Record summary
The record is a 190-nucleotide RNA from Pantoea vagans, which matches "Gammaproteobacterial sRNA STnc100" in Rfam. The organism belongs to Pantoea, within Bacteria. The base pairs follow the family's consensus structure, which was predicted with CMfinder. It is annotated as a small RNA.
[Rfam]
RNA sequence: AUUUUUAUCUUAUGUUCUAGAUUGUUAUCAAUGCGGUGAAUCCCUCUAUGCGACGGGGUCAAAUCUGAGCUAUUCCAAGAGUUGUGAGCCGACAUACCUGUUUCAGAUGGCAGGUAUACCGGGAGGCACCCGGCACCGCAGACAUUUUCAAAGUCGGAGCGAAUCCCCCUAAGCGGCGGGGCAUCAGCCA
Numbered sequence: 001a002u003u004u005u006u007a008u009c010u011u012a013u014g015u016u017c018u019a020g021a022u023u024g025u026u027a028u029c030a031a032u033g034c035g036g037u038g039a040a041u042c043c044c045u046c047u048a049u050g051c052g053a054c055g056g057g058g059u060c061a062a063a064u065c066u067g068a069g070c071u072a073u074u075c076c077a078a079g080a081g082u083u084g085u086g087a088g089c090c091g092a093c094a095u096a097c098c099u100g101u102u103u104c105a106g107a108u109g110g111c112a113g114g115u116a117u118a119c120c121g122g123g124a125g126g127c128a129c130c131c132g133g134c135a136c137c138g139c140a141g142a143c144a145u146u147u148u149c150a151a152a153g154u155c156g157g158a159g160c161g162a163a164u165c166c167c168c169c170u171a172a173g174c175g176g177c178g179g180g181g182c183a184u185c186a187g188c189c190a
Base pairs, nucleotide, nucleotide: 014147032140033139034138035137036136037135038134043058044057045056046055066084067083088093094117095116096115097114098113099112100111119133120132121131122130123129163184164183166181167180168179169178
Dot-bracket structure: .............(.................(((((((....((((........)))).......((...............))...(....)(((((((..........))))))).(((((.....))))))))))))......)...............((.((((........)))).))......